Rfam assigns this 120-nucleotide RNA sequence from Paenalkalicoccus suaedae to the family "Ribosomal protein L20 leader". On this family, see Zengel and Lindahl, Prog Nucleic Acid Res Mol Biol 1994: "Diverse mechanisms for regulating ribosomal protein synthesis in Escherichia coli". It scores 78 bits against the family's covariance model. Taxonomically the source falls in Paenalkalicoccus (Bacteria, Bacillati, Caryophanales, Bacillaceae).

RNA sequence: CAAAGCAAGAAGAAGCGCCCGCUUCUCACCUAGUCGGCAAAGGCUGUCAGGUUACUAUGUCUUUAUUACGAUUUAAACGUAGAAGUGUGGGCGAUUAUUCUCCCGCACUUUUUUUGUGUG
Numbered sequence: 001c002a003a004a005g006c007a008a009g010a011a012g013a014a015g016c017g018c019c020c021g022c023u024u025c026u027c028a029c030c031u032a033g034u035c036g037g038c039a040a041a042g043g044c045u046g047u048c049a050g051g052u053u054a055c056u057a058u059g060u061c062u063u064u065a066u067u068a069c070g071a072u073u074u075a076a077a078c079g080u081a082g083a084a085g086u087g088u089g090g091g092c093g094a095u096u097a098u099u100c101u102c103c104c105g106c107a108c109u110u111u112u113u114u115u116g117u118g119u120g
Base pairs, nucleotide, nucleotide: 011026012025013024014023015022016021028052029051030050035046036045037044038043086107087106088105089104090103091102093100094099
Dot-bracket structure: ..........((((((....)))))).(((....((((....))))...))).................................((((((.((....)).)))))).............